[Rfam]
Shown here is a 131-nucleotide RNA from Rattus norvegicus, a member of the family "Small Cajal body specific RNA 8". Rfam describes the family as follows. scaRNAs are a specific class of small nuclear RNAs which localise to the Cajal bodies and guide the modification of RNA polymerase II transcribed spliceosomal RNAs U1, U2, U4, U5 and U12. U92 belong to the H/ACA box class of guide RNAs as it has the predicted hairpin-hinge-hairpin-tail structure, conserved H/ACA-box motifs and is found associated with GAR1. Taxonomically the source falls in Rattus (Eukaryota, Eumetazoa, Mammalia, Rodentia).
RNA sequence: CGGGAGAGUGAUACACAAGUUGGGCAGAAGUGCUGCUCCAAUUGUCACUAGAUCUCCCCACAGUAAACUGCCUUUUGAUGACCAGGGCGAAUUGAGUGAAAUCGUCAUGGACAGAUACGGGGCAGACAAUU
Numbered sequence: 001c002g003g004g005a006g007a008g009u010g011a012u013a014c015a016c017a018a019g020u021u022g023g024g025c026a027g028a029a030g031u032g033c034u035g036c037u038c039c040a041a042u043u044g045u046c047a048c049u050a051g052a053u054c055u056c057c058c059c060a061c062a063g064u065a066a067a068c069u070g071c072c073u074u075u076u077g078a079u080g081a082c083c084a085g086g087g088c089g090a091a092u093u094g095a096g097u098g099a100a101a102u103c104g105u106c107a108u109g110g111a112c113a114g115a116u117a118c119g120g121g122g123c124a125g126a127c128a129a130u131u
Base pairs, nucleotide, nucleotide: 002058003057004056005055006054007053015045016044017043018042022038023037024036025035068125069124070123071122072121073120074119082110083109084108087105088104089103090102
Gene Ontology terms of the family: nucleolus, Cajal body and RNA processing.